[Rfam]
RNA sequence: GGGCGCACGGGGGAUGCCUUGGUAGCAAAGGCCGAAGAAGGACGUGGCAGGCUGCGAAAAGCCCGGGGGAGGUGCCUAACAACCGAAGAUCCCGGGAUAUCCGAAUGGGGAAACCCGCAUGGAAGGAAAUCCAUGCAUCGCUUAGUGAAGAUAGUAGCUAAGCGAGGGGCACGAGGCGAAGUGAAACAUCUCAGUAGCCUCAGGAAGAGAAAUCAAGAGAGAUUCCCUAAGUAGCGGCGAGCGAACGGGGAAGAGCCCAAACCUAAGCUGUGUGAUAGCGGCCAGGCGUUGCAGUUUAGGGGUAGCGGGGCACAUACGGAGCCGGCUGGCAACAGGCUCAGCUAGUUACAAAACUUGUACAUAGCCGAACUGCAUGGGAAGGCAGACCGAAGAAGGUGAUAGUCCUGUAGGCGAAAUGUACAAGACUAGCUGGUAUGUGACCCCAAGUACACCGGGACACGAGGAAUCCUGGUGGAAUCAGGGGGGACCACCCUCCAAGGCUAAACACCUUUGCUAACCGAUAGCGCAUAGUACCGUGAGGGAACGGUGAAAAGAACCCCAGUGAGGGGAGUGAAAUAGAACCUGAAACCGUGCGUCCAC
Numbered sequence: 001g002g003g004c005g006c007a008c009g010g011g012g013g014a015u016g017c018c019u020u021g022g023u024a025g026c027a028a029a030g031g032c033c034g035a036a037g038a039a040g041g042a043c044g045u046g047g048c049a050g051g052c053u054g055c056g057a058a059a060a061g062c063c064c065g066g067g068g069g070a071g072g073u074g075c076c077u078a079a080c081a082a083c084c085g086a087a088g089a090u091c092c093c094g095g096g097a098u099a100u101c102c103g104a105a106u107g108g109g110g111a112a113a114c115c116c117g118c119a120u121g122g123a124a125g126g127a128a129a130u131c132c133a134u135g136c137a138u139c140g141c142u143u144a145g146u147g148a149a150g151a152u153a154g155u156a157g158c159u160a161a162g163c164g165a166g167g168g169g170c171a172c173g174a175g176g177c178g179a180a181g182u183g184a185a186a187c188a189u190c191u192c193a194g195u196a197g198c199c200u201c202a203g204g205a206a207g208a209g210a211a212a213u214c215a216a217g218a219g220a221g222a223u224u225c226c227c228u229a230a231g232u233a234g235c236g237g238c239g240a241g242c243g244a245a246c247g248g249g250g251a252a253g254a255g256c257c258c259a260a261a262c263c264u265a266a267g268c269u270g271u272g273u274g275a276u277a278g279c280g281g282c283c284a285g286g287c288g289u290u291g292c293a294g295u296u297u298a299g300g301g302g303u304a305g306c307g308g309g310g311c312a313c314a315u316a317c318g319g320a321g322c323c324g325g326c327u328g329g330c331a332a333c334a335g336g337c338u339c340a341g342c343u344a345g346u347u348a349c350a351a352a353a354c355u356u357g358u359a360c361a362u363a364g365c366c367g368a369a370c371u372g373c374a375u376g377g378g379a380a381g382g383c384a385g386a387c388c389g390a391a392g393a394a395g396g397u398g399a400u401a402g403u404c405c406u407g408u409a410g411g412c413g414a415a416a417u418g419u420a421c422a423a424g425a426c427u428a429g430c431u432g433g434u435a436u437g438u439g440a441c442c443c444c445a446a447g448u449a450c451a452c453c454g455g456g457a458c459a460c461g462a463g464g465a466a467u468c469c470u471g472g473u474g475g476a477a478u479c480a481g482g483g484g485g486g487a488c489c490a491c492c493c494u495c496c497a498a499g500g501c502u503a504a505a506c507a508c509c510u511u512u513g514c515u516a517a518c519c520g521a522u523a524g525c526g527c528a529u530a531g532u533a534c535c536g537u538g539a540g541g542g543a544a545c546g547g548u549g550a551a552a553a554g555a556a557c558c559c560c561a562g563u564g565a566g567g568g569g570a571g572u573g574a575a576a577u578a579g580a581a582c583c584u585g586a587a588a589c590c591g592u593g594c595g596u597c598c599a600c
Base pairs, nucleotide, nucleotide: 001598002597003596004595005594006593007592008591009590010589016583017547018546021519022518023516024515025514026513027512028511029510030509031508032168033167040102041101042100043056044055045054062096063095064094065093066092067091068090071084072083073082107116108115109114117136118135119134120133121132122131123130138165139164140163141162142161143160144159145158146157172203173201174200175199176198177197183190184189213220214219223505224251225250226249227248228247234242235241254502255501256500257499262300263299264298265297266296267295268294269293270292271291272290307444308443309442312438313437314436315435316434351427354424355423356422357421358420359419360418361417362416364412365411366410370385371384372383373382388392394406395405396404450474451473452472453471454470455469456468457467481496482495483494484493485492534541535540557569558568559567560566

Annotation: Rfam assigns this 600-nucleotide part of an RNA from Coprothermobacter proteolyticus to the family "Bacterial large subunit ribosomal RNA". On this family, see Yusupov et al., Science 2001: "Crystal structure of the ribosome at 5.5 A resolution". Rfam's curators put it in the seed alignment.